[Rfam]
RNA sequence: AUCUCCUGUGCCUACUGAGCUGAUAACAGUUUCAUGUUAAACAAACACUGGCUCAGUUCAGCAGGAACCGGAG
Numbered sequence: 001a002u003c004u005c006c007u008g009u010g011c012c013u014a015c016u017g018a019g020c021u022g023a024u025a026a027c028a029g030u031u032u033c034a035u036g037u038u039a040a041a042c043a044a045a046c047a048c049u050g051g052c053u054c055a056g057u058u059c060a061g062c063a064g065g066a067a068c069c070g071g072a073g
Stems, first nucleotide, its partner, number of pairs: 003073004008068002011065003015061009027050004
Rfam assigns this 73-nucleotide RNA sequence from Dissostichus mawsoni to the family "mir-24 microRNA precursor family". On this family, see Ambros, Cell 2001: "microRNAs: tiny regulators with great potential". Rfam 15.1 lists 1,372 matches to the family in 601 species. About the family: This family represents the microRNA (miRNA) mir-24 family. miRNAs are transcribed as ~70nt precursors (modelled here) and subsequently processed by the Dicer enzyme to give a ~22nt product. In this case the mature sequence comes from the 3' arm of the precursor.